RNA sequence: GUUGCAGGACGACCUGCAAUAACAAGAAUAAUGAUGGGACGACCCGU
Numbered sequence: 001g002u003u004g005c006a007g008g009a010c011g012a013c014c015u016g017c018a019a020u021a022a023c024a025a026g027a028a029u030a031a032u033g034a035u036g037g038g039a040c041g042a043c044c045c046g047u
Stems, first nucleotide, its partner, number of pairs: 001020008034047005
Dot-bracket structure: ((((((((....)))))))).............(((((....)))))